[Rfam]
RNA sequence: AUAUCUUUUGGGUGGAUGACUCUGCAAUUUUAAUAGUGACAAAAAUCGUCCACCAAAAAUUGCACAGUAUCCAUCUGUAAUCCGCU
Numbered sequence: 001a002u003a004u005c006u007u008u009u010g011g012g013u014g015g016a017u018g019a020c021u022c023u024g025c026a027a028u029u030u031u032a033a034u035a036g037u038g039a040c041a042a043a044a045a046u047c048g049u050c051c052a053c054c055a056a057a058a059a060u061u062g063c064a065c066a067g068u069a070u071c072c073a074u075c076u077g078u079a080a081u082c083c084g085c086u
Base pairs, nucleotide, nucleotide: 009077010076011075012074013073014072015071016070017069019068020067023064024063025062026061027060028059029058030057031056

About this RNA:
A member of the RNA family "mir-363 microRNA precursor family" from Carassius auratus, 86 nucleotides long. The source organism's lineage runs through Eukaryota, Actinopterygii, Clupeocephala, Otophysi and Carassius.